Shown here is a 67-nucleotide RNA from Bombyx mori, a member of the family "mir-2774 microRNA precursor family". The match comes from Rfam's covariance-model search (55 bits).
RNA sequence: ACAACAUUCGGACCGUCGGACUAUCGAGCAAUUACACCCGCUCAGUGGAAGAUCUUUUAAUGGUAGA
Numbered sequence: 001a002c003a004a005c006a007u008u009c010g011g012a013c014c015g016u017c018g019g020a021c022u023a024u025c026g027a028g029c030a031a032u033u034a035c036a037c038c039c040g041c042u043c044a045g046u047g048g049a050a051g052a053u054c055u056u057u058u059a060a061u062g063g064u065a066g067a
Stems, first nucleotide, its partner, number of pairs: 004064002010058003015053003021048004026043004
Rfam links the family to the GO terms RISC complex and miRNA-mediated post-transcriptional gene silencing. The organism belongs to Bombyx, within Eukaryota. The base pairs follow the family's consensus structure, which was predicted with RNAalifold.